[Rfam]
RNA sequence: AGUAAAGGAGCAAUAAAAAAUUUCUUGUUUUAUCAAGAAACUAGUAUUGCUCCUUUACU
Numbered sequence: 001a002g003u004a005a006a007g008g009a010g011c012a013a014u015a016a017a018a019a020a021u022u023u024c025u026u027g028u029u030u031u032a033u034c035a036a037g038a039a040a041c042u043a044g045u046a047u048u049g050c051u052c053c054u055u056u057a058c059u
Stems, first nucleotide, its partner, number of pairs: 004056012019042001022039006

Shown here is a 59-nucleotide sequence, a member of the family "Plastid-psbA-4 3UTR RNA". Pairs were carried over by alignment from the consensus structure, which was predicted with LocARNA. Plastid psbA-4 is a non-coding RNA (ncRNA) present in plastids. It was identified in inverted repeat sequences in the 3 prime untranslate region (3UTR) of photosystem II quinone-binding protein (psbA). It is annotated as a cis-regulatory element.